This 86-nucleotide RNA sequence from Chrysochloris asiatica belongs to the Rfam family "Small nucleolar RNA SNORD35". It is annotated as a C/D-box small nucleolar RNA. About the family: U35 is a C/D box snoRNA located in intron 6 of ribosomal protein L13A and intron 3 of ribosomal protein S11 in humans and at homologous positions in mouse and chicken ribosomal protein genes. U35 guides the methylation of 2'-O-ribose sites in 28S rRNA. Lineage of the source: Eukaryota > Metazoa > Teleostomi > Theria > Chrysochloris.
RNA sequence: GGCAAAUGAUGGCUUUUCUCACGAUGGUCUGCGGAUGCCCAAGUGGACACUGCCGAUAAUGCCAAUGGCUCAGCUGAUGCCGCAAA
Numbered sequence: 001g002g003c004a005a006a007u008g009a010u011g012g013c014u015u016u017u018c019u020c021a022c023g024a025u026g027g028u029c030u031g032c033g034g035a036u037g038c039c040c041a042a043g044u045g046g047a048c049a050c051u052g053c054c055g056a057u058a059a060u061g062c063c064a065a066u067g068g069c070u071c072a073g074c075u076g077a078u079g080c081c082g083c084a085a086a
Stems, first nucleotide, its partner, number of pairs: 001081004